[Rfam]
RNA sequence: ACCUGAUGCUAGGGGAGCGUUAUGCUGAGAGGAAGGUUAAACCUUCGACCCUCUGAACCUGAACCGGGUAAUUCCGGCGAAGGGAAGCACAAUUGCUCUUCU
Numbered sequence: 001a002c003c004u005g006a007u008g009c010u011a012g013g014g015g016a017g018c019g020u021u022a023u024g025c026u027g028a029g030a031g032g033a034a035g036g037u038u039a040a041a042c043c044u045u046c047g048a049c050c051c052u053c054u055g056a057a058c059c060u061g062a063a064c065c066g067g068g069u070a071a072u073u074c075c076g077g078c079g080a081a082g083g084g085a086a087g088c089a090c091a092a093u094u095g096c097u098c099u100u101c102u
Stems, first nucleotide, its partner, number of pairs: 007089004011052004017025003032046005058083003064077004
RNA: TPP riboswitch aptamer (THI element)